[Rfam]
Nucleotides: 411
Base pairs, nucleotide, nucleotide: 001407002406003405004404005403006402007401008400009399010398011396012360013359014358015357016356017355018354020041021040022039023038024037025036026035027034028033046394047393048392050391051390052389053388054387055228056227057226058225063294064293065292068224069223070222071221072220073087074086075085076084077083088115089113090112091111092110093109094108095107096106097105098104116219117218121217122216123213124212125211138159139158140155141154142153143152144151145150167185168184169183170182171181172180186208187206188205189204191202192201193200194199232317233316234315235314242308243307244306245305246304247303285299286298287297288296289295324343325342326341327340328339329338330337331336
Number, partner (000 for none) and nucleotide at each position: 001407g002406c003405g004404a005403g006402g007401g008400g009399c010398c011396g012360g013359a014358u015357g016356g017355c018354c019000g020041g021040g022039g023038g024037c025036g026035g027034g028033u029000u030000u031000c032000g033028g034027c035026c036025c037024g038023u039022u040021c041020c042000a043000g044000g045000a046394a047393a048392g049000u050391c051390c052389g053388g054387a055228c056227u057226c058225c059000a060000u061000c062000a063294a064293g065292g066000c067000a068224c069223g070222g071221u072220g073087c074086c075085g076084g077083g078000u079000a080000a081000c082000g083077c084076c085075c086074g087073g088115g089113c090112g091111g092110g093109g094108u095107c096106g097105g098104c099000a100000u101000g102000c103000c104098g105097c106096c107095g108094g109093u110092c111091c112090c113089g114000a115088c116219g117218g118000a119000a120000a121217g122216c123213g124212c125211c126000a127000c128000a129000g130000a131000g132000a133000a134000c135000a136000g137000a138159c139158c140155g141154c142153c143152g144151c145150g146000c147000a148000u149000g150145c151144g152143c153142g154141g155140c156000a157000a158139g159138g160000g161000u162000g163000a164000a165000a166000a167185g168184g169183u170182g171181g172180g173000g174000u175000a176000a177000g178000a179000g180172c181171c182170c183169a184168c185167c186208a187206c188205g189204g190000g191202g192201a193200u194199g195000g196000c197000a198000a199194c200193a201192u202191c203000g204189c205188c206187g207000g208186u209000a210000u211125g212124g213123c214000a215000a216122g217121c218117c219116c220072c221071a222070c223069c224068g225058g226057g227056a228055g229000c230000a231000a232317u233316g234315c235314c236000g237000a238000a239000u240000a241000g242308g243307g244306a245305u246304c247303c248000c249000g250000c251000c252000g253000c254000g255000g256000g257000a258000c259000c260000g261000g262000u263000g264000c265000c266000g267000c268000a269000a270000g271000g272000c273000a274000u275000a276000c277000c278000g279000c280000c281000g282000c283000a284000g285299g286298g287297g288296c289295c290000g291000c292065c293064u294063u295289g296288g297287c298286c299285c300000c301000g302000g303247g304246g305245a306244u307243c308242c309000g310000g311000g312000u313000u314235g315234g316233c317232a318000g319000c320000u321000a322000g323000a324343g325342g326341g327340u328339a329338u330337c331336g332000g333000c334000a335000a336331c337330g338329g339328u340327g341326c342325c343324c344000c345000c346000a347000g348000a349000g350000g351000a352000a353000u354018g355017g356016u357015c358014a359013u360012c361000g362000a363000a364000c365000c366000g367000g368000g369000g370000c371000a372000a373000c374000c375000c376000g377000g378000g379000g380000a381000a382000c383000a384000g385000a386000a387054u388053c389052c390051g391050g392048c393047u394046u395000a396011c397000a398010g399009g400008u401007c402006c403005u404004u405003c406002g407001c408000g409000u410000a411000u

A member of the RNA family "Bacterial RNase P class A" from Salibaculum griseiflavum, 411 nucleotides long.
A search with the family's covariance model found it, with a score of 274 bits.
NCBI's taxonomy places the organism under Bacteria, Pseudomonadati, Pseudomonadota, Alphaproteobacteria, Salibaculum.